[Rfam]
RNA sequence: CAUGACAUAGGCGAUGGAGUUCGCCAUAAUUGCCGAUCAGGCUGAUGACUCCUACCGGUGU
Numbered sequence: 001c002a003u004g005a006c007a008u009a010g011g012c013g014a015u016g017g018a019g020u021u022c023g024c025c026a027u028a029a030u031u032g033c034c035g036a037u038c039a040g041g042c043u044g045a046u047g048a049c050u051c052c053u054a055c056c057g058g059u060g061u
Stems, first nucleotide, its partner, number of pairs: 010025004016052006032042003
Dot-bracket structure: .........[[[[..((((((]]]]......(((.....)))....)))))).........
A member of the RNA family "Fluoride riboswitch aptamer (crcB RNA motif)" from Thermoactinomyces daqus, 61 nucleotides long. The match comes from Rfam's covariance-model search (57 bits). The organism belongs to Thermoactinomyces, within Bacteria. Pairs were carried over by alignment from the consensus structure, which is taken from published work.